Rfam assigns this 74-nucleotide sequence from Trifolium pratense to the family "MIR5272 microRNA precursor family". Pairs were carried over by alignment from the consensus structure, which was predicted with RNAalifold. The family has 6 seed sequences and 271 matches in Rfam 15.1.
RNA sequence: GUUAAAGUAAAUUGAUUUAUGUUUGGAUAGACUCGUGUAAAAGUGAUUCUUAUUAGUUGAUGUUGUUUGGAUAG
Numbered sequence: 001g002u003u004a005a006a007g008u009a010a011a012u013u014g015a016u017u018u019a020u021g022u023u024u025g026g027a028u029a030g031a032c033u034c035g036u037g038u039a040a041a042a043g044u045g046a047u048u049c050u051u052a053u054u055a056g057u058u059g060a061u062g063u064u065g066u067u068u069g070g071a072u073a074g
Stems, first nucleotide, its partner, number of pairs: 011061007021053002025049004031044003